[Rfam]
RNA sequence: CCGGCAAUAGCUCAGUUGGUAGAGCGGGAGACUGUAGUAAGUAUCUAAUGCUUGAACUGAUAUCUCUAGGUCGCUAGUUCAAUUCUGGCUUGCCGGA
Numbered sequence: 001c002c003g004g005c006a007a008u009a010g011c012u013c014a015g016u017u018g019g020u021a022g023a024g025c026g027g028g029a030g031a032c033u034g035u036a037g038u039a040a041g042u043a044u045c046u047a048a049u050g051c052u053u054g055a056a057c058u059g060a061u062a063u064c065u066c067u068a069g070g071u072c073g074c075u076a077g078u079u080c081a082a083u084u085c086u087g088g089c090u091u092g093c094c095g096g097a
Base pairs, nucleotide, nucleotide: 001096002095003094004093005092006091007090010025011024012023013022027067028066029065030064031063073089074088075087076086077085
Shown here is a 97-nucleotide RNA from Acaulospora morrowiae, a member of the family "tRNA". NCBI's taxonomy places the organism under Eukaryota, Fungi, Diversisporales, Acaulosporaceae, Acaulospora. Rfam's curators write: Transfer RNA (tRNA) molecules are approximately 80 nucleotides in length. Rfam classes the family as a transfer RNA.